[Rfam]
RNA sequence: UCCCGGCUUUCCAUCAGCUGGGGUCACUGAAGAGGCACACCAUCAUUGCCGGAAGUGCGGUAGGGUUACCCCUCCAAUCCAUGGCAGACAAAGCGGAUUCAUGCUCUCGACCGAGGGGGCGUUUAUCCAUCGUUUCGCGCGUUGAGCGUUCGU
Numbered sequence: 001u002c003c004c005g006g007c008u009u010u011c012c013a014u015c016a017g018c019u020g021g022g023g024u025c026a027c028u029g030a031a032g033a034g035g036c037a038c039a040c041c042a043u044c045a046u047u048g049c050c051g052g053a054a055g056u057g058c059g060g061u062a063g064g065g066u067u068a069c070c071c072c073u074c075c076a077a078u079c080c081a082u083g084g085c086a087g088a089c090a091a092a093g094c095g096g097a098u099u100c101a102u103g104c105u106c107u108c109g110a111c112c113g114a115g116g117g118g119g120c121g122u123u124u125a126u127c128c129a130u131c132g133u134u135u136c137g138c139g140c141g142u143u144g145a146g147c148g149u150u151c152g153u
Stems, first nucleotide, its partner, number of pairs: 001023008034050004057140003084094001103123001
speF leader: a 153-nucleotide RNA from Paenirhizobium daejeonense. Gene Ontology term of the family: regulation of gene expression. Taxonomically the source falls in Paenirhizobium (Bacteria, Pseudomonadota, Alphaproteobacteria, Hyphomicrobiales). About the family: This family is a putative regulatory RNA structure that is found upstream of the speF gene encoding ornithine decarboxylase in Agrobacterium tumefaciens and other alpha-proteobacteria. A reference for the family is del Val et al. (2012), "A survey of sRNA families in alpha-proteobacteria", RNA Biol. By type it is a cis-regulatory leader.